The record is a 306-nucleotide RNA sequence, which matches "Plant signal recognition particle RNA" in Rfam. Pairs were carried over by alignment from the consensus structure, which is taken from published work. By type it is a non-coding RNA gene. A reference for the family is Batey et al. (2000), "Crystal structure of the ribonucleoprotein core of the signal recognition particle", Science.
[Rfam]
RNA sequence: GACGGGCUUAGCAACGUGGGCCUGUAACCCAAGUGGGGGCAUGUGGGAAAUGGGACUUUGGGUCAACCUAGUGGAUCGGGUCCAGUGUUAGCUGCUUACUGGUCUGCCCAUUCCAAGCCGGGAGUUGGGCUGAGUGACCUGGGCGAAGGCUGGGUUGCGCAGCUCCUAGAGUGGAGGGCAAUGCGUGAGGCUGGCUUCACAGAGCAGCGACUACCUCCCGCUCUCGGCAGUGGAAGGAUAACGGGCCGGUGCUACCUGGAUCCACCAUGCUUCACUGGGCUGACUCUUAAUAGGACCAUUUCUUUU
Numbered sequence: 001g002a003c004g005g006g007c008u009u010a011g012c013a014a015c016g017u018g019g020g021c022c023u024g025u026a027a028c029c030c031a032a033g034u035g036g037g038g039g040c041a042u043g044u045g046g047g048a049a050a051u052g053g054g055a056c057u058u059u060g061g062g063u064c065a066a067c068c069u070a071g072u073g074g075a076u077c078g079g080g081u082c083c084a085g086u087g088u089u090a091g092c093u094g095c096u097u098a099c100u101g102g103u104c105u106g107c108c109c110a111u112u113c114c115a116a117g118c119c120g121g122g123a124g125u126u127g128g129g130c131u132g133a134g135u136g137a138c139c140u141g142g143g144c145g146a147a148g149g150c151u152g153g154g155u156u157g158c159g160c161a162g163c164u165c166c167u168a169g170a171g172u173g174g175a176g177g178g179c180a181a182u183g184c185g186u187g188a189g190g191c192u193g194g195c196u197u198c199a200c201a202g203a204g205c206a207g208c209g210a211c212u213a214c215c216u217c218c219c220g221c222u223c224u225c226g227g228c229a230g231u232g233g234a235a236g237g238a239u240a241a242c243g244g245g246c247c248g249g250u251g252c253u254a255c256c257u258g259g260a261u262c263c264a265c266c267a268u269g270c271u272u273c274a275c276u277g278g279g280c281u282g283a284c285u286c287u288u289a290a291u292a293g294g295a296c297c298a299u300u301u302c303u304u305u306u
Stems, first nucleotide, its partner, number of pairs: 001040001003038001004023007028037003043306001045304009056293002058290003061285005068278008077269001078263008087255001089254003093251002099249008108237002111235005117228009127165006134158007142151003166171001173218005184209003191202003